[Rfam]
Purine riboswitch aptamer: a 102-nucleotide sequence from Neobacillus vireti. Gene Ontology term of the family: purine nucleobase biosynthetic process. The family is grouped with related families in Rfam's "Purine riboswitches". The family's consensus secondary structure is taken from published work.
RNA sequence: AUAAAUUUAUUAGACUUCGCUCAUAUAAUCGCAGGAAUAUGGCCUGCAAGUUUCUACCGGAUUACCGUAAAUAAUCUGACUAUGAGUGGGUAAUGUGAAAAA
Numbered sequence: 001a002u003a004a005a006u007u008u009a010u011u012a013g014a015c016u017u018c019g020c021u022c023a024u025a026u027a028a029u030c031g032c033a034g035g036a037a038u039a040u041g042g043c044c045u046g047c048a049a050g051u052u053u054c055u056a057c058c059g060g061a062u063u064a065c066c067g068u069a070a071a072u073a074a075u076c077u078g079a080c081u082a083u084g085a086g087u088g089g090g091u092a093a094u095g096u097g098a099a100a101a102a
Stems, first nucleotide, its partner, number of pairs: 018088008029049001031047005058078007